[Rfam]
RNA: mir-31 microRNA precursor family
RNA sequence: GAGUCCAGACUAGGCAAGAUGUUGGCAUAGCUGAGUCAUAUAUGAACCAUCAGCUGUGUCUCAUAUUGCUAUCUUUGGGCU
Dot-bracket structure: ....(..((...(((((.(((..((((((((.....................)))))))).))).)))))...)).)....